[Rfam]
RNA: L31-Firmicutes ribosomal protein leader
RNA sequence: CUCUAUUUCUGACAAAAGAUUUUAGGGCAAAGGAG
Numbered sequence: 001c002u003c004u005a006u007u008u009c010u011g012a013c014a015a016a017a018g019a020u021u022u023u024a025g026g027g028c029a030a031a032g033g034a035g
Stems, first nucleotide, its partner, number of pairs: 001027005008019003